[Rfam]
RNA sequence: GGUGUGGAGGGAGAAGCUGUGGCGGUUAUGUCGGCCUAGGCCACUUACCUAUCAUAAGCGUAUGGCUUUUCCCCUCGGACC
Numbered sequence: 001g002g003u004g005u006g007g008a009g010g011g012a013g014a015a016g017c018u019g020u021g022g023c024g025g026u027u028a029u030g031u032c033g034g035c036c037u038a039g040g041c042c043a044c045u046u047a048c049c050u051a052u053c054a055u056a057a058g059c060g061u062a063u064g065g066c067u068u069u070u071c072c073c074c075u076c077g078g079a080c081c
Stems, first nucleotide, its partner, number of pairs: 003079001005077003009073003013069002017065005026057005
mir-965 microRNA precursor family: an 81-nucleotide RNA sequence from Portunus trituberculatus.
Rfam links the family to the GO terms RISC complex and miRNA-mediated post-transcriptional gene silencing.
The match comes from Rfam's covariance-model search (48 bits).
NCBI's taxonomy places the organism under Eukaryota, Protostomia, Arthropoda, Heterotremata, Portunus.